[Rfam]
RNA sequence: UAGACCAGAAGAGGUGCGUUAGCCAGGUAGUUCAGGACAGAUGUCUAUACAUCGUAGCCUGAACGAGGGGGACUAACGCCGAGGGAGGCGCUGAUAUAGAGCGGCGUAUCCCGGUCGUUAAGGCUGAAUCCUUACGACUGUCACCUGAAAUUGCGGUGGAGAGCUUCUGGCCUU
Numbered sequence: 001u002a003g004a005c006c007a008g009a010a011g012a013g014g015u016g017c018g019u020u021a022g023c024c025a026g027g028u029a030g031u032u033c034a035g036g037a038c039a040g041a042u043g044u045c046u047a048u049a050c051a052u053c054g055u056a057g058c059c060u061g062a063a064c065g066a067g068g069g070g071g072a073c074u075a076a077c078g079c080c081g082a083g084g085g086a087g088g089c090g091c092u093g094a095u096a097u098a099g100a101g102c103g104g105c106g107u108a109u110c111c112c113g114g115u116c117g118u119u120a121a122g123g124c125u126g127a128a129u130c131c132u133u134a135c136g137a138c139u140g141u142c143a144c145c146u147g148a149a150a151u152u153g154c155g156g157u158g159g160a161g162a163g164c165u166u167c168u169g170g171c172c173u174u
Base pairs, nucleotide, nucleotide: 006169007168008167009166010165011164016079017078018077019076020075021074022073024071030064031063032062033061034060035059036058083112084111085110086109088107089106090105091104092103093102113139114138115137116136117135118134120133121132122131123130141159142158143157144156145155